[Rfam]
RNA sequence: AUGAUUCCUACAUGGUCGUCCUGAGAAUACAUGUCACUGUAUUGUCUGAAUAACAUUCAGCAAGUAACAUUCAACAUGUGUUCUCAGGUCGCCCCUGCAGGCUUUUU
Numbered sequence: 001a002u003g004a005u006u007c008c009u010a011c012a013u014g015g016u017c018g019u020c021c022u023g024a025g026a027a028u029a030c031a032u033g034u035c036a037c038u039g040u041a042u043u044g045u046c047u048g049a050a051u052a053a054c055a056u057u058c059a060g061c062a063a064g065u066a067a068c069a070u071u072c073a074a075c076a077u078g079u080g081u082u083c084u085c086a087g088g089u090c091g092c093c094c095c096u097g098c099a100g101g102c103u104u105u106u107u
Stems, first nucleotide, its partner, number of pairs: 007101002011097002014094001017091002023085010
The record is a 107-nucleotide RNA sequence from Cucumis melo, which matches "MIR398 microRNA precursor family" in Rfam. NCBI's taxonomy places the organism under Eukaryota, Euphyllophyta, fabids, Benincaseae, Cucumis.